[Rfam]
RNA: Purine riboswitch aptamer
RNA sequence: AUAAACUUAAUAAUGUUCACUUAUAUAAAUCUAGCAAUAUGGGCUAGAUGUAUCUACCGAGCUACCGUAAAAAGCUCUUGGCUAUAAGUAAAAAUACAGUCAUC
Numbered sequence: 001a002u003a004a005a006c007u008u009a010a011u012a013a014u015g016u017u018c019a020c021u022u023a024u025a026u027a028a029a030u031c032u033a034g035c036a037a038u039a040u041g042g043g044c045u046a047g048a049u050g051u052a053u054c055u056a057c058c059g060a061g062c063u064a065c066c067g068u069a070a071a072a073a074g075c076u077c078u079u080g081g082c083u084a085u086a087a088g089u090a091a092a093a094a095u096a097c098a099g100u101c102a103u104c
Stems, first nucleotide, its partner, number of pairs: 019089007029049007058080001059077005